Shown here is a 77-nucleotide RNA from Alligator mississippiensis, a member of the family "Mammalian CPEB3 ribozyme". The match comes from Rfam's covariance-model search (44 bits). NCBI's taxonomy places the organism under Eukaryota, Chordata, Teleostomi, Crocodylia, Alligator.

RNA sequence: GGUUGCAAGUUUGAGGCCAUACUAGAAGUGUUCAUGGCACAGCCUGUCAGCUUCCAAUUAAAUCUGCAAAUUCUGCU
Number, nucleotide and partner (000 for none) at each position: 001g000002g000003u000004u000005g000006c000007a000008a000009g000010u000011u000012u000013g000014a000015g044016g043017c042018c000019a000020u000021a077022c000023u075024a074025g073026a072027a071028g040029u039030g038031u000032u000033c000034a000035u000036g000037g000038c030039a029040c028041a000042g017043c016044c015045u000046g000047u000048c066049a065050g064051c000052u062053u061054c000055c000056a000057a000058u000059u000060a000061a053062a052063u000064c050065u049066g048067c000068a000069a000070a000071u027072u026073c025074u024075g023076c000077u021